Rfam assigns this 104-nucleotide RNA sequence from Wolfiporia cocos to the family "Small nucleolar RNA Z13/snr52".
Rfam links the family to the GO terms RNA processing and nucleolus.
The match comes from Rfam's covariance-model search (73 bits).
The family's RNA type in Rfam is C/D-box small nucleolar RNA.
The organism belongs to Wolfiporia cocos, within Eukaryota.

[Rfam]
RNA sequence: UCUGGUAUGAUGAAGCAUUACGGAUGUAAAUGAGCAAAGCUCACCUAUCCGAGAGCGCAUAAAAACCGUGUGGAUUUCUCCGUUGCCUUCCUUCUGACCUUCAU
Numbered sequence: 001u002c003u004g005g006u007a008u009g010a011u012g013a014a015g016c017a018u019u020a021c022g023g024a025u026g027u028a029a030a031u032g033a034g035c036a037a038a039g040c041u042c043a044c045c046u047a048u049c050c051g052a053g054a055g056c057g058c059a060u061a062a063a064a065a066c067c068g069u070g071u072g073g074a075u076u077u078c079u080c081c082g083u084u085g086c087c088u089u090c091c092u093u094c095u096g097a098c099c100u101u102c103a104u
Stems, first nucleotide, its partner, number of pairs: 001103001021082004